The record is an 86-nucleotide sequence from Oreotrochilus melanogaster, which matches "Small nucleolar RNA SNORD127" in Rfam. It scores 85 bits against the family's covariance model. NCBI's taxonomy places the organism under Eukaryota, Eumetazoa, Sarcopterygii, Amniota, Oreotrochilus.
RNA sequence: CAGCAACAAUGAUGACAGGAAUUGUACCUGUAUGUAAUGUUUCAUUACUGCAUGGAGACACCAGUCCCUCUAAACUGAUGUUGCUG
Numbered sequence: 001c002a003g004c005a006a007c008a009a010u011g012a013u014g015a016c017a018g019g020a021a022u023u024g025u026a027c028c029u030g031u032a033u034g035u036a037a038u039g040u041u042u043c044a045u046u047a048c049u050g051c052a053u054g055g056a057g058a059c060a061c062c063a064g065u066c067c068c069u070c071u072a073a074a075c076u077g078a079u080g081u082u083g084c085u086g
Base pairs, nucleotide, nucleotide: 001086002085003084004083005082006081007080

Rfam classes the family as a C/D-box small nucleolar RNA.